[Rfam]
RNA sequence: ACUUGUAUAAACCAGCAUAUUGGGCUGGCGUCUCUACACUAACACCCAUGUUAGUUCUAUAAGU
Numbered sequence: 001a002c003u004u005g006u007a008u009a010a011a012c013c014a015g016c017a018u019a020u021u022g023g024g025c026u027g028g029c030g031u032c033u034c035u036a037c038a039c040u041a042a043c044a045c046c047c048a049u050g051u052u053a054g055u056u057c058u059a060u061a062a063g064u
Base pairs, nucleotide, nucleotide: 001064002063003062004061005060006059007058008036012028013027014026015025016024022046023045030037038055039054040053041052042051043050044049

This 64-nucleotide sequence from Williamsoniiplasma somnilux belongs to the Rfam family "2dG-I riboswitch aptamer (M. florum)". Its Rfam clan is "Purine riboswitches". It scores 51 bits against the family's covariance model. Pairs were carried over by alignment from the consensus structure, which is taken from published work. Gene Ontology terms of the family: regulation of DNA-templated transcription, termination and deoxyribonucleoside binding.